[Rfam]
RNA sequence: CCCAGCGUUGAAACGCUGGGCUAUUUGCUGUCGUCCCUCCGGGACU
Numbered sequence: 001c002c003c004a005g006c007g008u009u010g011a012a013a014c015g016c017u018g019g020g021c022u023a024u025u026u027g028c029u030g031u032c033g034u035c036c037c038u039c040c041g042g043g044a045c046u
Base pairs, nucleotide, nucleotide: 001020002019003018004017005016006015007014008013033045034044035043036042037041
Shown here is a 46-nucleotide sequence from Candidatus Electrothrix aarhusensis, a member of the family "Acido-Lenti-1 RNA". The organism belongs to Candidatus Electrothrix, within Bacteria. By type it is a small RNA.